A member of the RNA family "mir-208 microRNA precursor family" from Albula glossodonta, 76 nucleotides long. A reference for the family is Linsen et al. (2010), "Small RNA expression and strain specificity in the rat", BMC Genomics. The source organism's lineage runs through Eukaryota, Deuterostomia, Euteleostomi, Albulinae and Albula. Rfam links the family to the GO terms miRNA-mediated post-transcriptional gene silencing and RISC complex. Pairs were carried over by alignment from the consensus structure, which was predicted with RNAalifold. The match comes from Rfam's covariance-model search (76 bits).
RNA sequence: UCUGACGGAUAAGCUUUUUGUUUGUGUUAUGUUUCCACUAAAAUGUAAGACGAACAAAAAGUUUGUCUGUUAGCAG
Numbered sequence: 001u002c003u004g005a006c007g008g009a010u011a012a013g014c015u016u017u018u019u020g021u022u023u024g025u026g027u028u029a030u031g032u033u034u035c036c037a038c039u040a041a042a043a044u045g046u047a048a049g050a051c052g053a054a055c056a057a058a059a060a061g062u063u064u065g066u067c068u069g070u071u072a073g074c075a076g
Stems, first nucleotide, its partner, number of pairs: 003072004008067002011064008020055001023052002027048006